Rfam assigns this 149-nucleotide RNA from Myotis myotis to the family "Small nucleolar RNA SNORA57". About the family: U99 belongs to the H/ACA class of snoRNAs which are thought to guide the sites of modification of uridines to pseudouridines, the target for this family is unknown. The literature on the family includes a 2003 paper in Nucleic Acids Res by Vitali et al., "Identification of 13 novel human modification guide RNAs". The base pairs follow the family's consensus structure, which was predicted with PFOLD. Rfam classes the family as an H/ACA-box small nucleolar RNA. Taxonomically the source falls in Myotis (Eukaryota, Deuterostomia, Craniata, Theria).

RNA sequence: CCUCCUUUUCCUGGGGGAGAUCAGGUGUGUUGUCUCUGUCCCUAUAAUGUACUGAGGCAGAAGGACAGGGCACCAGCCCCCUUGGGGUCAUGUCUUUGGUGCUGGUGGCUUCCAGUCUGCAGGUUCUAUCCUUAAGCUCUGGGACACAG
Numbered sequence: 001c002c003u004c005c006u007u008u009u010c011c012u013g014g015g016g017g018a019g020a021u022c023a024g025g026u027g028u029g030u031u032g033u034c035u036c037u038g039u040c041c042c043u044a045u046a047a048u049g050u051a052c053u054g055a056g057g058c059a060g061a062a063g064g065a066c067a068g069g070g071c072a073c074c075a076g077c078c079c080c081c082u083u084g085g086g087g088u089c090a091u092g093u094c095u096u097u098g099g100u101g102c103u104g105g106u107g108g109c110u111u112c113c114a115g116u117c118u119g120c121a122g123g124u125u126c127u128a129u130c131c132u133u134a135a136g137c138u139c140u141g142g143g144a145c146a147c148a149g
Base pairs, nucleotide, nucleotide: 001057002056003055004054016043017042019040020039024035025034083141084140085139086138087137088136102123103122105120106119107118108117